Notes: The family of this 231-nucleotide RNA sequence from Clostridium pasteurianum is "Group II catalytic intron D1-D4-6". The base pairs follow the family's consensus structure. The family has 174 seed sequences and 1,617 matches in Rfam 15.1. A reference for the family is Bonen and Vogel (2001), "The ins and outs of group II introns", Trends Genet. Taxonomically the source falls in Clostridium pasteurianum (Bacteria, Bacillota, Eubacteriales, Clostridiaceae). Its family is annotated with Group II intron splicing in the Gene Ontology.
RNA sequence: AAAUUCCAACUCAGGAAAGAGGUAAGCCACCUCACCUGAAAUCGAGUCUUGGGUUUGUGAAGGUAACGACACAGACUAAGCGUAGACAGAGCGAGUCUAGGCCGUAACGCAAGUGAAGCGAUUGAGCCUCGUUAGUACGUCCGGAGGCCGACAAGGUCGAAUACUUGGAAGGCUAUAGUAGUUUCCUGUUAAUGGCGAGGGAAAUGGAGACUCCGGCGGGGUCUGAGAGCA
Numbered sequence: 001a002a003a004u005u006c007c008a009a010c011u012c013a014g015g016a017a018a019g020a021g022g023u024a025a026g027c028c029a030c031c032u033c034a035c036c037u038g039a040a041a042u043c044g045a046g047u048c049u050u051g052g053g054u055u056u057g058u059g060a061a062g063g064u065a066a067c068g069a070c071a072c073a074g075a076c077u078a079a080g081c082g083u084a085g086a087c088a089g090a091g092c093g094a095g096u097c098u099a100g101g102c103c104g105u106a107a108c109g110c111a112a113g114u115g116a117a118g119c120g121a122u123u124g125a126g127c128c129u130c131g132u133u134a135g136u137a138c139g140u141c142c143g144g145a146g147g148c149c150g151a152c153a154a155g156g157u158c159g160a161a162u163a164c165u166u167g168g169a170a171g172g173c174u175a176u177a178g179u180a181g182u183u184u185c186c187u188g189u190u191a192a193u194g195g196c197g198a199g200g201g202a203a204a205u206g207g208a209g210a211c212u213c214c215g216g217c218g219g220g221g222u223c224u225g226a227g228a229g230c231a
Stems, first nucleotide, its partner, number of pairs: 012038004020032004026196002042090002046087004050082002052077008062067001123225001124223001126222006141216006147173003152167004179207001181205007